Background:
This 439-nucleotide sequence from Octodon degus belongs to the Rfam family "Vertebrate telomerase RNA". Pairs were carried over by alignment from the consensus structure, which is taken from published work. About the family: Telomerase is a ribonucleoprotein reverse transcriptase that synthesises telomeric DNA. Telomerase RNAs differ greatly in sequence and structure between vertebrates, ciliates and yeasts, but they share a 5' pseudoknot structure close to the template sequence. Vertebrate telomerase RNAs have a 3' H/ACA snoRNA-like domain. It scores 285 bits against the family's covariance model. The literature on the family includes a 2000 paper in Cell by Chen et al., "Secondary structure of vertebrate telomerase RNA". Gene Ontology terms of the family: telomerase catalytic core complex, telomere maintenance via telomerase and telomerase activity. Clan: Telomerase clan.
RNA sequence: UGGGCCGGGAGGGGUGGCGGUCUUCUCCGUCUAACCCUAAGUACUGAGUGGACGUAGGCGCCGCGCUUUUACUCCCCGCGCGCUGUUUUUCUCGCUGACUUUCAGCGUGCGAGAAAGCCUUGGCCUACCGUCGACCACCUGUCUUAAUUAAACGCAAACAAAAAAUGUCAGCGCGGCCGGUCCGCCCCUCCCGGGUGCCUGCGGCAGCGGCGGCUCGCCCGUCCGACCCCCGAUCCCCGCCUAGGGCCGCGGCCGGCGCGGGGCUUCUCCGGAGGCGCCCAAGGCCGCCGCGAAGCUAGUCUCUGUCAGCCGCGGGUCGCUCGGGGUCGGCGGGCGAUCCCGGGCCGAGGGGCCGCAGGAAGAGCAACGGAGCCGGCCUCCGCGCGCAGGGCGCUUCCCUGAGCUGUGGGAAGCGCACCGAGACGCGGCUCCUACAAGC
Numbered sequence: 001u002g003g004g005c006c007g008g009g010a011g012g013g014g015u016g017g018c019g020g021u022c023u024u025c026u027c028c029g030u031c032u033a034a035c036c037c038u039a040a041g042u043a044c045u046g047a048g049u050g051g052a053c054g055u056a057g058g059c060g061c062c063g064c065g066c067u068u069u070u071a072c073u074c075c076c077c078g079c080g081c082g083c084u085g086u087u088u089u090u091c092u093c094g095c096u097g098a099c100u101u102u103c104a105g106c107g108u109g110c111g112a113g114a115a116a117g118c119c120u121u122g123g124c125c126u127a128c129c130g131u132c133g134a135c136c137a138c139c140u141g142u143c144u145u146a147a148u149u150a151a152a153c154g155c156a157a158a159c160a161a162a163a164a165a166u167g168u169c170a171g172c173g174c175g176g177c178c179g180g181u182c183c184g185c186c187c188c189u190c191c192c193g194g195g196u197g198c199c200u201g202c203g204g205c206a207g208c209g210g211c212g213g214c215u216c217g218c219c220c221g222u223c224c225g226a227c228c229c230c231c232g233a234u235c236c237c238c239g240c241c242u243a244g245g246g247c248c249g250c251g252g253c254c255g256g257c258g259c260g261g262g263g264c265u266u267c268u269c270c271g272g273a274g275g276c277g278c279c280c281a282a283g284g285c286c287g288c289c290g291c292g293a294a295g296c297u298a299g300u301c302u303c304u305g306u307c308a309g310c311c312g313c314g315g316g317u318c319g320c321u322c323g324g325g326g327u328c329g330g331c332g333g334g335c336g337a338u339c340c341c342g343g344g345c346c347g348a349g350g351g352g353c354c355g356c357a358g359g360a361a362g363a364g365c366a367a368c369g370g371a372g373c374c375g376g377c378c379u380c381c382g383c384g385c386g387c388a389g390g391g392c393g394c395u396u397c398c399c400u401g402a403g404c405u406g407u408g409g410g411a412a413g414c415g416c417a418c419c420g421a422g423a424c425g426c427g428g429c430u431c432c433u434a435c436a437a438g439c
Base pairs, nucleotide, nucleotide: 005194006193007192008191009190010189011188012187013186014185015184016183017182018179019178020177021176022175065118066117067116068115069114077111078110079109080108081107082106083105084104085103094172095171096170097169098168099167100165101164102163198359199358200357201356202355203354204353212340213339215337216336217335218334219333220332228326229325230324231323232322233321236316237315238314239313240312248292249291250290251289252288254287255286256285257284260280261279262278294304295301370431371430372429373428374427375426376424378422379421389418391416392415393414396411397410398409399408